[Rfam]
RNA sequence: AGGCGAAGGUCCCAGCAGAGAGGGUGAGGAUCUCAAAACGAGGCCUCUCUAACACUUUAUUUGCCUUCGCAGAUUAAGAUUUGUAAUCGGCCGAAUCGUAGGAUGCCCUAAAAACUCUCUGGUUUUGGUGCGUCUGGAACCCUCGGCUACAUUCGC
Number, nucleotide and partner (000 for none) at each position: 001a000002g000003g070004c069005g068006a067007a066008g065009g064010u000011c020012c000013c018014a000015g000016c000017a000018g013019a000020g011021a000022g000023g000024g000025u000026g049027a048028g047029g000030a000031u000032c042033u041034c040035a000036a000037a000038a000039c000040g034041a033042g032043g000044c000045c000046u000047c028048u027049c026050u000051a000052a000053c000054a000055c000056u000057u000058u000059a000060u000061u000062u000063g000064c009065c008066u007067u006068c005069g004070c003071a000072g000073a000074u000075u000076a000077a000078g000079a000080u000081u000082u000083g000084u000085a000086a000087u000088c000089g000090g147091c146092c145093g144094a143095a000096u000097c000098g000099u000100a000101g000102g134103a133104u000105g131106c130107c000108c128109u127110a126111a125112a124113a000114a000115c000116u000117c000118u000119c000120u000121g000122g000123u000124u112125u111126u110127g109128g108129u000130g106131c105132g000133u103134c102135u000136g000137g000138a000139a000140c000141c000142c000143u094144c093145g092146g091147c090148u000149a000150c000151a000152u000153u000154c000155g000156c000
Notes: Rfam assigns this 156-nucleotide sequence from Nyssa sinensis to the family "Small nucleolar RNA snoR145". The literature on the family includes a 2009 paper in Nucleic Acids Res by Chen and Wu, "Mining small RNA sequencing data: a new approach to identify small nucleolar RNAs in Arabidopsis". Gene Ontology terms of the family: nucleolus and RNA processing. Rfam classes the family as an H/ACA-box small nucleolar RNA. Taxonomically the source falls in Nyssa (Eukaryota, Streptophytina, eudicotyledons, Nyssaceae).